A member of the RNA family "Mammalian CPEB3 ribozyme" from Muraenolepis orangiensis, 80 nucleotides long.
RNA sequence: ACACACAUCAGGAGGAUUAUGGGAGAAGCGUUGUCGUGGCGAUCUCCGUCAGGCUUUAAACAAAGCCUGUGAAUUCUACC
Numbered sequence: 001a002c003a004c005a006c007a008u009c010a011g012g013a014g015g016a017u018u019a020u021g022g023g024a025g026a027a028g029c030g031u032u033g034u035c036g037u038g039g040c041g042a043u044c045u046c047c048g049u050c051a052g053g054c055u056u057u058a059a060a061c062a063a064a065g066c067c068u069g070u071g072a073a074u075u076c077u078a079c080c
Stems, first nucleotide, its partner, number of pairs: 012046002015044004021080002024077004028040002050069007
Pairs were carried over by alignment from the consensus structure, which is taken from published work. Its family is annotated with RNA nuclease activity in the Gene Ontology.